RNA sequence: AUACUUUCAUAUGCCAAAACAGAAGCGCUUACAGCGUGGCCCUGUCAGAUUCCAGUGAAUCUGUAAAUUCUGCU
Numbered sequence: 001a002u003a004c005u006u007u008c009a010u011a012u013g014c015c016a017a018a019a020c021a022g023a024a025g026c027g028c029u030u031a032c033a034g035c036g037u038g039g040c041c042c043u044g045u046c047a048g049a050u051u052c053c054a055g056u057g058a059a060u061c062u063g064u065a066a067a068u069u070c071u072g073c074u
Base pairs, nucleotide, nucleotide: 013040014039015038018074020072021071022070023069024068025037026036027035046063047062048061049060050059051058052057
Shown here is a 74-nucleotide RNA from Alligator sinensis, a member of the family "Mammalian CPEB3 ribozyme". Taxonomically the source falls in Alligator (Eukaryota, Teleostomi, Dipnotetrapodomorpha, Amniota). The match comes from Rfam's covariance-model search (48 bits).